[Rfam]
RNA sequence: AUACGAUAAGAGCAAAACUAAUGAAAAUUAGUGACGCAAAGCUAAAGGAGCUAAGGCGAAAUACUUCGCUAUGCUUGCCAGUUACCGAA
Numbered sequence: 001a002u003a004c005g006a007u008a009a010g011a012g013c014a015a016a017a018c019u020a021a022u023g024a025a026a027a028u029u030a031g032u033g034a035c036g037c038a039a040a041g042c043u044a045a046a047g048g049a050g051c052u053a054a055g056g057c058g059a060a061a062u063a064c065u066u067c068g069c070u071a072u073g074c075u076u077g078c079c080a081g082u083u084a085c086c087g088a089a
Base pairs, nucleotide, nucleotide: 012037013036017032018031019030020029021028022027040083041082042081043080047079048078049075050074051073056069057068058067059066
Annotation:
Shown here is an 89-nucleotide RNA from Paenibacillus sp. Root444D2, a member of the family "c-di-GMP-I riboswitch aptamer". Lineage of the source: Bacteria > Bacillati > Bacilli > Caryophanales > Paenibacillus. Gene Ontology term of the family: cyclic-di-GMP binding. It scores 79 bits against the family's covariance model.